The record is a 77-nucleotide RNA from Branchiostoma floridae, which matches "mir-4872 microRNA precursor family" in Rfam.
A search with the family's covariance model found it, with a score of 70 bits.
The source organism's lineage runs through Eukaryota, Bilateria, Cephalochordata, Leptocardii and Branchiostoma.
RNA sequence: CCGCAUAAGGUGCCGGGGCAAUCCAAGCUCUGAGUUCUCUCAACUUCAGAGUUUUAUUGCCCCGGCUCCUUUUAUGA
Numbered sequence: 001c002c003g004c005a006u007a008a009g010g011u012g013c014c015g016g017g018g019c020a021a022u023c024c025a026a027g028c029u030c031u032g033a034g035u036u037c038u039c040u041c042a043a044c045u046u047c048a049g050a051g052u053u054u055u056a057u058u059g060c061c062c063c064g065g066c067u068c069c070u071u072u073u074a075u076g077a
Stems, first nucleotide, its partner, number of pairs: 002076001005073001007071001009069002012066006019059004025054009034044002
Dot-bracket structure: .(..(.(.((.((((((.((((..(((((((((((.......)).))))))))).)))).)))))).)).).)..).